[Rfam]
RNA sequence: GACAUGCUAGCGGGAGAGACCGCGCUACACUCUGGUGUGGCCGGCGCCGAAGGAGCAACUGCCCCGGAAACUCUCAGGCAAACGGACCGCUAGCAUGAA
Numbered sequence: 001g002a003c004a005u006g007c008u009a010g011c012g013g014g015a016g017a018g019a020c021c022g023c024g025c026u027a028c029a030c031u032c033u034g035g036u037g038u039g040g041c042c043g044g045c046g047c048c049g050a051a052g053g054a055g056c057a058a059c060u061g062c063c064c065c066g067g068a069a070a071c072u073c074u075c076a077g078g079c080a081a082a083c084g085g086a087c088c089g090c091u092a093g094c095a096u097g098a099a
Stems, first nucleotide, its partner, number of pairs: 006094008020044003046079003049075002053073003059066001
RNA: Glycine riboswitch aptamer